The family of this 110-nucleotide RNA from Cyprinus carpio is "Vault RNA". NCBI's taxonomy places the organism under Eukaryota, Opisthokonta, Teleostomi, Teleostei, Cyprinus carpio. Pairs were carried over by alignment from the consensus structure, which is taken from published work. A search with the family's covariance model found it, with a score of 51 bits. For this family Rfam cites "Evolution of Vault RNAs" (Stadler et al., Mol Biol Evol, 2009). It is annotated as a non-coding RNA gene.
RNA sequence: GCGUUGGUGUGGCUCAGUGGUUACUUCCGAUUUCUAGCGAACUCCCCAUCUCACGGCCGCCGGGAAACCGGAGACCAGAGAUCGAACCUCGGGCACUGUCCAACGUUUUA
Numbered sequence: 001g002c003g004u005u006g007g008u009g010u011g012g013c014u015c016a017g018u019g020g021u022u023a024c025u026u027c028c029g030a031u032u033u034c035u036a037g038c039g040a041a042c043u044c045c046c047c048a049u050c051u052c053a054c055g056g057c058c059g060c061c062g063g064g065a066a067a068c069c070g071g072a073g074a075c076c077a078g079a080g081a082u083c084g085a086a087c088c089u090c091g092g093g094c095a096c097u098g099u100c101c102a103a104c105g106u107u108u109u110a
Stems, first nucleotide, its partner, number of pairs: 002105006012094004017090001019088002025073005